RNA: ybhL leader
RNA sequence: CAUGCUUGCUGAGCUCCGCAGCGGCGACCGGGAUGUUCCCGACACCGUAGCAACACCGGAGCUUGA
Numbered sequence: 001c002a003u004g005c006u007u008g009c010u011g012a013g014c015u016c017c018g019c020a021g022c023g024g025c026g027a028c029c030g031g032g033a034u035g036u037u038c039c040c041g042a043c044a045c046c047g048u049a050g051c052a053a054c055a056c057c058g059g060a061g062c063u064u065g066a
Base pairs, nucleotide, nucleotide: 011064012063013062014061015060016059017058018057022047023046024045029041030040031039032038
Dot-bracket structure: ..........((((((((...(((....((((.....))))...))).........))))))))..